Description:
c-di-GMP-I riboswitch aptamer: an 84-nucleotide sequence from Halalkalibacter akibai. Lineage of the source: Bacteria > Bacillati > Bacillota > Caryophanales > Halalkalibacter akibai. The base pairs follow the family's consensus structure, which is taken from published work. From the family's description: GEMM was predicted in a large-scale screen for bacterial structured RNA regulatory elements.
RNA sequence: GUACGAUCUGGGCAAAGCUACGGAAACGUGGUGACGCAAAACUAAAGGGGCUACAGCAUUUUGCUAUGCCAGCCAGUUGCCGUU
Numbered sequence: 001g002u003a004c005g006a007u008c009u010g011g012g013c014a015a016a017g018c019u020a021c022g023g024a025a026a027c028g029u030g031g032u033g034a035c036g037c038a039a040a041a042c043u044a045a046a047g048g049g050g051c052u053a054c055a056g057c058a059u060u061u062u063g064c065u066a067u068g069c070c071a072g073c074c075a076g077u078u079g080c081c082g083u084u
Base pairs, nucleotide, nucleotide: 012037013036017032018031019030020029021028022027040078041077042076043075047074048073049070050069051068056064057063058062